Shown here is a 131-nucleotide RNA from Vagococcus salmoninarum, a member of the family "FMN riboswitch aptamer (RFN element)". A search with the family's covariance model found it, with a score of 111 bits. Gene Ontology term of the family: FMN binding.

RNA sequence: GUUCGUCUUCAGGGCAGGGUGUGAUUCCCGACCGGUGGUUAUAGUCCACGACCUGUUUCUUAGUAAUAAGGAAUGGCUGAAUUGGUGAAAAUCCAAUACCGACAGUAUAGUCUGGAUAAGAGAAGAUAGAG
Dot-bracket structure: ..(.((((((......(((.......))).[[((((((.....[[))))...((((................))))....(((((.......)))))]])).(((....]]))).......)))))).)..